[Rfam]
RNA sequence: UGUGGUGGUAAGGUGACAGAAGGAGUGACACGCGGGUAUUUGAUUACCCAUUGUCUACCCUCCUGGGAAGGUCUGAGUGAGGUCCCGACCCGGUUUGGGGUGGUCUGCAUCCUCUAGCGGGGGGACGACGCAAACCGUCGUGGUGCUGUACCAGAAACCUGCCUCGGCGCCAAUCAUCCGAGAGUACAAGAAGGCAUUACUCCCCAGUGGAAGAAGCCUGAUACGAUAUGGUGAUAGUGCUGAGUUUGAACCACGGCACCGGUACCGGCUGUGCUGAGUGCGAUUGUCCCACAUGAACUCAAUUCAGACUACUCUCUCGCCACA
Dot-bracket structure: ((((...(.(....[...[.(((((........(((((......)))))..........)))))........(((((...(((..........................(((((.....)))))((((((.....)))))).(((((((.............((((((((..................................................................))))))))........)))))))....)))..................]...].............))))).......).)...))))
Numbered sequence: 001u002g003u004g005g006u007g008g009u010a011a012g013g014u015g016a017c018a019g020a021a022g023g024a025g026u027g028a029c030a031c032g033c034g035g036g037u038a039u040u041u042g043a044u045u046a047c048c049c050a051u052u053g054u055c056u057a058c059c060c061u062c063c064u065g066g067g068a069a070g071g072u073c074u075g076a077g078u079g080a081g082g083u084c085c086c087g088a089c090c091c092g093g094u095u096u097g098g099g100g101u102g103g104u105c106u107g108c109a110u111c112c113u114c115u116a117g118c119g120g121g122g123g124g125a126c127g128a129c130g131c132a133a134a135c136c137g138u139c140g141u142g143g144u145g146c147u148g149u150a151c152c153a154g155a156a157a158c159c160u161g162c163c164u165c166g167g168c169g170c171c172a173a174u175c176a177u178c179c180g181a182g183a184g185u186a187c188a189a190g191a192a193g194g195c196a197u198u199a200c201u202c203c204c205c206a207g208u209g210g211a212a213g214a215a216g217c218c219u220g221a222u223a224c225g226a227u228a229u230g231g232u233g234a235u236a237g238u239g240c241u242g243a244g245u246u247u248g249a250a251c252c253a254c255g256g257c258a259c260c261g262g263u264a265c266c267g268g269c270u271g272u273g274c275u276g277a278g279u280g281c282g283a284u285u286g287u288c289c290c291a292c293a294u295g296a297a298c299u300c301a302a303u304u305c306a307g308a309c310u311a312c313u314c315u316c317u318c319g320c321c322a323c324a
Stems, first nucleotide, its partner, number of pairs: 001324004008317001010315001015289001019285001021064005034049005073307005081266003110124005125141006143259007163244008